[Rfam]
Rfam assigns this 160-nucleotide sequence from Azoarcus taiwanensis to the family "radC RNA". NCBI's taxonomy places the organism under Bacteria, Pseudomonadota, Betaproteobacteria, Rhodocyclales, Azoarcus. The family has 148 seed sequences and 500 matches in Rfam 15.1. A search with the family's covariance model found it, with a score of 94 bits.
RNA sequence: ACGCUGCCCGCAUGUUCGCUGGCGUUGCCGGCAGCAUGCCGAGGCAGUCGAGACCUUCGAGACUGCGGUGCGGUUCGCCGUGCUGGUCGCUUCAUUCUCCGGGCGCAUGCCGCGUCCAUCCACCUCAACCCUCAAGGGACAUGCCUCCCUUGCGGGCGGG
Numbered sequence: 001a002c003g004c005u006g007c008c009c010g011c012a013u014g015u016u017c018g019c020u021g022g023c024g025u026u027g028c029c030g031g032c033a034g035c036a037u038g039c040c041g042a043g044g045c046a047g048u049c050g051a052g053a054c055c056u057u058c059g060a061g062a063c064u065g066c067g068g069u070g071c072g073g074u075u076c077g078c079c080g081u082g083c084u085g086g087u088c089g090c091u092u093c094a095u096u097c098u099c100c101g102g103g104c105g106c107a108u109g110c111c112g113c114g115u116c117c118a119u120c121c122a123c124c125u126c127a128a129c130c131c132u133c134a135a136g137g138g139a140c141a142u143g144c145c146u147c148c149c150u151u152g153c154g155g156g157c158g159g160g
Stems, first nucleotide, its partner, number of pairs: 011038004015033001018032006044066006052088004067084007124160003131154001133152006